[Rfam]
RNA sequence: CGUGUUAGGCGACCCGCUCCUCCUCCCAAGGGCCGCCUUACAGAACAGCGGCACUCCUCCUCCCAGCCGUUGUUCAAUUCUUUCGAAAAGCCUGCCGCACCUCCUCCCGCGGCAGGCUUUUUCG
Dot-bracket structure: ......(((((.(((..............))).)))))....((((((((((.............))))))))))............(((((((((((..........))))))))))).....
Numbered sequence: 001c002g003u004g005u006u007a008g009g010c011g012a013c014c015c016g017c018u019c020c021u022c023c024u025c026c027c028a029a030g031g032g033c034c035g036c037c038u039u040a041c042a043g044a045a046c047a048g049c050g051g052c053a054c055u056c057c058u059c060c061u062c063c064c065a066g067c068c069g070u071u072g073u074u075c076a077a078u079u080c081u082u083u084c085g086a087a088a089a090g091c092c093u094g095c096c097g098c099a100c101c102u103c104c105u106c107c108c109g110c111g112g113c114a115g116g117c118u119u120u121u122u123c124g
Stems, first nucleotide, its partner, number of pairs: 007038005013032003043075010088119011
The record is a 124-nucleotide RNA sequence from Rhizobium leguminosarum, which matches "Alphaproteobacterial ar14" in Rfam. Lineage of the source: Bacteria > Alphaproteobacteria > Hyphomicrobiales > Rhizobiaceae > Rhizobium leguminosarum bv. trifolii. On this family, see del Val et al., RNA Biol 2012: "A survey of sRNA families in alpha-proteobacteria". About the family: Smr14C2 was renamed NfeR1 (Nodule Formation Efficiency RNA) highly expressed in salt stress and during the symbiotic interaction on legume roots.